[Rfam]
The family of this 47-nucleotide RNA sequence is "L31-Actinobacteria ribosomal protein leader". The sequence is in the family's curated seed alignment. The family's consensus secondary structure is taken from published work.
RNA sequence: CCGGCUCCGGUUCACGUCCAGCUCGCUGAAAGGACGACCCGGCGGCC
Numbered sequence: 001c002c003g004g005c006u007c008c009g010g011u012u013c014a015c016g017u018c019c020a021g022c023u024c025g026c027u028g029a030a031a032g033g034a035c036g037a038c039c040c041g042g043c044g045g046c047c
Base pairs, nucleotide, nucleotide: 003047004046005045007042008041009040010039015036016035017034018033019032